[Rfam]
RNA sequence: AGGUGAGGUAGAGGUCGCGAUUGUGAAGAGUACACCGGAGGAGGCGCUGAAGCCGCCGAUGAAUCCCGUGGAAAGGCACCGUCGCCGAAGCUCGUCGCCCGCUUCAUCCGGCGGCAGGCUGGGGCUGUUUCCGAAAGGAACAGAACUGUCACGUUGUUCCUUCACCUGGAACGACGUGUUGAGCUAUCUUUUCU
Dot-bracket structure: .....((((((.....(((((.(((.......(((.(((........................))).)))......))).)))))...((((.((((((..........)))))).))))((..(((((((.....)))))))..))..((((((((((.........)))))))))).....)))))).....
The record is a 194-nucleotide sequence from Fontibacillus phaseoli, which matches "Lysine riboswitch aptamer" in Rfam.
It scores 108 bits against the family's covariance model.
The source organism's lineage runs through Bacteria, Bacillati, Bacillota, Paenibacillaceae and Fontibacillus.
Gene Ontology term of the family: lysine biosynthetic process.